[Rfam]
RNA sequence: UUUAAAUGAUGAAUACACAUUAUUACCUUUUUUUUUCUGGCAUCUCUAAUGUUAGGGUGAGGCGUUUCAGUACGAUCCACUCGAUGAAUACAACCAUUGACAAUUUUCUGAAU
Numbered sequence: 001u002u003u004a005a006a007u008g009a010u011g012a013a014u015a016c017a018c019a020u021u022a023u024u025a026c027c028u029u030u031u032u033u034u035u036u037c038u039g040g041c042a043u044c045u046c047u048a049a050u051g052u053u054a055g056g057g058u059g060a061g062g063c064g065u066u067u068c069a070g071u072a073c074g075a076u077c078c079a080c081u082c083g084a085u086g087a088a089u090a091c092a093a094c095c096a097u098u099g100a101c102a103a104u105u106u107u108c109u110g111a112a113u
Stems, first nucleotide, its partner, number of pairs: 056081004